[Rfam]
Notes:
The record is a 224-nucleotide sequence from Volvox africanus, which matches "Plant small nucleolar RNA U3" in Rfam. Pairs were carried over by alignment from the consensus structure, which is taken from published work. NCBI's taxonomy places the organism under Eukaryota, Viridiplantae, Chlamydomonadales, Volvocaceae, Volvox. About the family: Small nucleolar RNAs (snoRNAs) are involved in the processing and modification of rRNA in the nucleolus. There are two main classes of snoRNAs: the box C/D class, and the box H/ACA class. U3 snoRNA is a member of the box C/D class.
RNA sequence: AUGACCAUGCUUGAACAGGAUCUGUUCUAUAGGUCGUACACCUGUCUGUAUUUCCCAAUACACACACGCAUCUCAACUCAGACGAUGACACGUAGUCCCGGCGCCUGAGCGCAACGUAUUGCCGCAGUGGCUGUGCCGCUGGCACAGACGCGCGGCUCUGGAUGAACGUCCCGCCGAGCCUCAUUCCGCCGGCAGGGAUGGCGCUCGGGACAAUCAGAUGGGUU
Numbered sequence: 001a002u003g004a005c006c007a008u009g010c011u012u013g014a015a016c017a018g019g020a021u022c023u024g025u026u027c028u029a030u031a032g033g034u035c036g037u038a039c040a041c042c043u044g045u046c047u048g049u050a051u052u053u054c055c056c057a058a059u060a061c062a063c064a065c066a067c068g069c070a071u072c073u074c075a076a077c078u079c080a081g082a083c084g085a086u087g088a089c090a091c092g093u094a095g096u097c098c099c100g101g102c103g104c105c106u107g108a109g110c111g112c113a114a115c116g117u118a119u120u121g122c123c124g125c126a127g128u129g130g131c132u133g134u135g136c137c138g139c140u141g142g143c144a145c146a147g148a149c150g151c152g153c154g155g156c157u158c159u160g161g162a163u164g165a166a167c168g169u170c171c172c173g174c175c176g177a178g179c180c181u182c183a184u185u186c187c188g189c190c191g192g193c194a195g196g197g198a199u200g201g202c203g204c205u206c207g208g209g210a211c212a213a214u215c216a217g218a219u220g221g222g223u224u
Stems, first nucleotide, its partner, number of pairs: 001037002003034001005033002013027006043066003047062006076223005095211006101204005109169003121156005128150002131147007171196002173193004178189002
Dot-bracket structure: (((.((......((((((...))))))....))).)).....(((.((((((....)))))).))).........(((((..............(((((((((((...(((.........(((((..((.(((((((...))))))).)).)))))..........))).((((((.((........)))))).))...))))).)))))).......))))).